[Rfam]
RNA sequence: GAUAUUGGAAAUAAAUUCUGCCCUGUGAGGAUGGGCAGGCCCUGGCACAGCUUUUCUGGGCAACCUGUGCCAGGGCCUGCCCACCCUCACAGGGAAGGAUUUAUUUCUAAUAUCUCAU
Numbered sequence: 001g002a003u004a005u006u007g008g009a010a011a012u013a014a015a016u017u018c019u020g021c022c023c024u025g026u027g028a029g030g031a032u033g034g035g036c037a038g039g040c041c042c043u044g045g046c047a048c049a050g051c052u053u054u055u056c057u058g059g060g061c062a063a064c065c066u067g068u069g070c071c072a073g074g075g076c077c078u079g080c081c082c083a084c085c086c087u088c089a090c091a092g093g094g095a096a097g098g099a100u101u102u103a104u105u106u107c108u109a110a111u112a113u114c115u116c117a118u
Base pairs, nucleotide, nucleotide: 010105011104012103013102014101015100016099018097019096021094022093023092024091025090026089027088028087029086030085032083033082034081036079037078038077039076040075041074042073043072044071045070046069047068048067049066050065
Dot-bracket structure: .........(((((((.((.((((((((((.(((.(((((((((((((((..............))))))))))))))).))).)))))))))).)).))))))).............